Shown here is a 521-nucleotide part of an RNA from Strongylocentrotus purpuratus, a member of the family "Eukaryotic large subunit ribosomal RNA".
RNA sequence: CCCUCCGAAGUUUCCCUCAGGAUAGCUGGCGCUCAUAUGCAGUUUUAUCUGGUAAAGCGAAUGAUUAGAGGCCUUGGGGACGAAACGACCUCAACCUAUUCUCAAACUUUAAAUUGGUAAGAGGCCCGACUCGCUGGCUUGGAGCCGGGCGAUCGAAUGCGAGUGCUCAGUGGGCCACUCUUGGUAAGCAGGACUGGCGCUGCGGGAUGAACCGAACGCCGGGUUACGGCGUCCGACUCGUACGCUCAUCAGAUCCCAGAAAAGGUGUUGGUCGAUACAGACAGCAGGACGGUGGCCAUGGAAGUCGGAACCCGCUAAGGAGUGUGUAACAACUCACCUGCCGAAUCGACCAGCCCUGAAAAUGGAUGGCGCUGAGCGUGUGUUUUGGCCCAUACCCGGCCGCUGGAGCAGAGGAGGUACUUCCCCCGCCCGGGAGGUAAGCCCCAGCGAGUAGGAGGGACGCCGCGGUGAGCGCGGAAGCGACGGGCGCGAGCCCGCGUGGAGCCGCCGCGGGCGCAGAU
Dot-bracket structure: ((((((....(.(((....))).)...((((((.........(((((((.....(((....(((..(.(((..((((((.(.....).))))))))).)..)))..)).).....))))))).(((((.(((.........))).)))))...........))))))......((((.(((((.....))))).))))....(((......)))...(((((.(...(((......(.....(((.................(((.((((((((((.......(((((.(((...((.........))...)))(...)(...((......)).).)))))...)))))))))))))..................)))........))))...).)))))((((((.((...............................)).))))))....)))))).(.((((((((.((......((....(((....)))...))...))))))))))..).....

It is one of the family's seed sequences.